[Rfam]
RNA sequence: UACUAGAGAGAAGGCAAGAUUUUGGCAUAGCUGUAGCAUCUGAACCUGUUGUGCCAUCAGAUUGCCAUCUUUCUUGUCU
Numbered sequence: 001u002a003c004u005a006g007a008g009a010g011a012a013g014g015c016a017a018g019a020u021u022u023u024g025g026c027a028u029a030g031c032u033g034u035a036g037c038a039u040c041u042g043a044a045c046c047u048g049u050u051g052u053g054c055c056a057u058c059a060g061a062u063u064g065c066c067a068u069c070u071u072u073c074u075u076g077u078c079u
Stems, first nucleotide, its partner, number of pairs: 005074007013066005020059001023056009
RNA: mir-31 microRNA precursor family
Organism: Xenopus laevis